[Rfam]
Overview:
The family of this 100-nucleotide sequence from Plutella xylostella is "mir-8517 microRNA precursor family". Gene Ontology terms of the family: RISC complex and miRNA-mediated post-transcriptional gene silencing. It scores 74 bits against the family's covariance model.
RNA sequence: UUACUGGACGAUUUAACUACAGAACUGUUCUGUCAAACACAAGAACAAAUUGUUAGUCAGAGAGUGACAAAACAGUUCAAUAGCUAAAACGUCCAGUAAG
Numbered sequence: 001u002u003a004c005u006g007g008a009c010g011a012u013u014u015a016a017c018u019a020c021a022g023a024a025c026u027g028u029u030c031u032g033u034c035a036a037a038c039a040c041a042a043g044a045a046c047a048a049a050u051u052g053u054u055a056g057u058c059a060g061a062g063a064g065u066g067a068c069a070a071a072a073c074a075g076u077u078c079a080a081u082a083g084c085u086a087a088a089a090c091g092u093c094c095a096g097u098a099a100g
Base pairs, nucleotide, nucleotide: 001099002098003097004096005095006094012088013087014086015085017083018082019081022078023077024076025075026074027073028072029061030060031059032058044054045053046052047051